[Rfam]
RNA sequence: GAGUUAAUUAGACAAGCAAGGUUAAGGUGUGAAGCACCGGAGCCGAAGUGAAAGCGAGCCUUAAUAGGGCGACUAAGUUUGUCUCAUUAGACCCGAAACCCGGUGAUCUAUCCAUGAGCAGGUUGAAGCAGGGGUAAUUCCCUGUGGAGGACCGAACCGGUGGACGUUGAAAAGUCCUCGGAUGACUUGUGGAUAGGAGUGAAAGGCUAAUCAAACUGGGUGAUAGCUGGUU
Numbered sequence: 001g002a003g004u005u006a007a008u009u010a011g012a013c014a015a016g017c018a019a020g021g022u023u024a025a026g027g028u029g030u031g032a033a034g035c036a037c038c039g040g041a042g043c044c045g046a047a048g049u050g051a052a053a054g055c056g057a058g059c060c061u062u063a064a065u066a067g068g069g070c071g072a073c074u075a076a077g078u079u080u081g082u083c084u085c086a087u088u089a090g091a092c093c094c095g096a097a098a099c100c101c102g103g104u105g106a107u108c109u110a111u112c113c114a115u116g117a118g119c120a121g122g123u124u125g126a127a128g129c130a131g132g133g134g135u136a137a138u139u140c141c142c143u144g145u146g147g148a149g150g151a152c153c154g155a156a157c158c159g160g161u162g163g164a165c166g167u168u169g170a171a172a173a174g175u176c177c178u179c180g181g182a183u184g185a186c187u188u189g190u191g192g193a194u195a196g197g198a199g200u201g202a203a204a205g206g207c208u209a210a211u212c213a214a215a216c217u218g219g220g221u222g223a224u225a226g227c228u229g230g231u232u
Stems, first nucleotide, its partner, number of pairs: 005089004010084008020044004026038003048055002058070004092230002095227001099220006108196011119184001121153004128145007157181003162177004198208003